[Rfam]
RNA: Actinobacteria sRNA Ms_IGR-5
Organism: Amycolatopsis sp. SID8362
RNA sequence: ACACGAGAGAGGAGGUGGUCCAAAGUUGUAUUCCAACAGGACUCGUGAGGUGGCUGUCCGCUAGCGGAUGGCACGUGGAGGACUUUGAGCAGCGCUACAGCUGAGCCACCUUCUGGCUCAUCGCCUGCUCCACGUGAUGCCUGAUAGCGAAUACCAGGCAGUCACCGUGCCCCCGGGGUUCCCGAGCACCAGUCCGGCUCGGGCUCGAACGUUUGACGGCGUUCGAGAGGCACCCCGGGGGUUCCUU
Numbered sequence: 001a002c003a004c005g006a007g008a009g010a011g012g013a014g015g016u017g018g019u020c021c022a023a024a025g026u027u028g029u030a031u032u033c034c035a036a037c038a039g040g041a042c043u044c045g046u047g048a049g050g051u052g053g054c055u056g057u058c059c060g061c062u063a064g065c066g067g068a069u070g071g072c073a074c075g076u077g078g079a080g081g082a083c084u085u086u087g088a089g090c091a092g093c094g095c096u097a098c099a100g101c102u103g104a105g106c107c108a109c110c111u112u113c114u115g116g117c118u119c120a121u122c123g124c125c126u127g128c129u130c131c132a133c134g135u136g137a138u139g140c141c142u143g144a145u146a147g148c149g150a151a152u153a154c155c156a157g158g159c160a161g162u163c164a165c166c167g168u169g170c171c172c173c174c175g176g177g178g179u180u181c182c183c184g185a186g187c188a189c190c191a192g193u194c195c196g197g198c199u200c201g202g203g204c205u206c207g208a209a210c211g212u213u214u215g216a217c218g219g220c221g222u223u224c225g226a227g228a229g230g231c232a233c234c235c236c237g238g239g240g241g242u243u244c245c246u247u
Stems, first nucleotide, its partner, number of pairs: 014058006059149005065143001067141001069139002072136009167244001169242011181203006